RNA sequence: UGUGCAAUGAUGAGUUCUGAAAAUUGGUGUGCAGUGGCGAUUUUAAUUGCCGUGAGCUUUUUCCACCAAAUUAUACGACUUCUUCUUCCUCUGAGCUCA
Numbered sequence: 001u002g003u004g005c006a007a008u009g010a011u012g013a014g015u016u017c018u019g020a021a022a023a024u025u026g027g028u029g030u031g032c033a034g035u036g037g038c039g040a041u042u043u044u045a046a047u048u049g050c051c052g053u054g055a056g057c058u059u060u061u062u063c064c065a066c067c068a069a070a071u072u073a074u075a076c077g078a079c080u081u082c083u084u085c086u087u088c089c090u091c092u093g094a095g096c097u098c099a
Stems, first nucleotide, its partner, number of pairs: 001099002004096002